RNA: Small nucleolar RNA SNORD82
Organism: Phascolarctos cinereus
RNA sequence: GGCACAGGGGAUGAUCUGCCAAGGGACUUAAUUCUGAAGCCUGAUAGACACUCACGGUCAUAAGCUGAUGUGC
Numbered sequence: 001g002g003c004a005c006a007g008g009g010g011a012u013g014a015u016c017u018g019c020c021a022a023g024g025g026a027c028u029u030a031a032u033u034c035u036g037a038a039g040c041c042u043g044a045u046a047g048a049c050a051c052u053c054a055c056g057g058u059c060a061u062a063a064g065c066u067g068a069u070g071u072g073c
Base pairs, nucleotide, nucleotide: 002073003072004071005070006069